RNA sequence: UGACCCCGAGCGGGAGAGCGUCCUCGCAGCCGGCGAGGGCCGCCGAAGGAGCAACUCCUCCCCGGAACCUCUCAGGCCCACGGACCGCACGGGACAG
Numbered sequence: 001u002g003a004c005c006c007c008g009a010g011c012g013g014g015a016g017a018g019c020g021u022c023c024u025c026g027c028a029g030c031c032g033g034c035g036a037g038g039g040c041c042g043c044c045g046a047a048g049g050a051g052c053a054a055c056u057c058c059u060c061c062c063c064g065g066a067a068c069c070u071c072u073c074a075g076g077c078c079c080a081c082g083g084a085c086c087g088c089a090c091g092g093g094a095c096a097g
Stems, first nucleotide, its partner, number of pairs: 006092003010088004020040006042077003045073002049071003055065002
Dot-bracket structure: .....(((.((((......((((((.........)))))).(((((..(((...((.......))...))))).))).......)))).))).....

This 97-nucleotide sequence from Thermomonospora umbrina belongs to the Rfam family "Glycine riboswitch aptamer". A search with the family's covariance model found it, with a score of 62 bits. The source organism's lineage runs through Bacteria, Bacillati, Actinomycetota, Thermomonosporaceae and Thermomonospora.